A member of the RNA family "Acido-Lenti-1 RNA" from Persicirhabdus sediminis, 46 nucleotides long. NCBI's taxonomy places the organism under Bacteria, Pseudomonadati, Verrucomicrobiia, Verrucomicrobiaceae, Persicirhabdus. A search with the family's covariance model found it, with a score of 38 bits. The family's consensus secondary structure is taken from published work. By type it is a small RNA.
[Rfam]
Nucleotides: 046
Base pairs, nucleotide, nucleotide: 001020002019003018004017005016006015007014008013033045034044035043036042037041
Number, partner (000 for none) and nucleotide at each position: 001020c002019c003018u004017a005016g006015g007014g008013c009000u010000g011000a012000a013008g014007c015006c016005c017004u018003a019002g020001g021000c022000u023000u024000u025000g026000u027000u028000c029000u030000u031000a032000u033045c034044g035043g036042c037041u038000u039000u040000c041037a042036g043035c044034c045033g046000g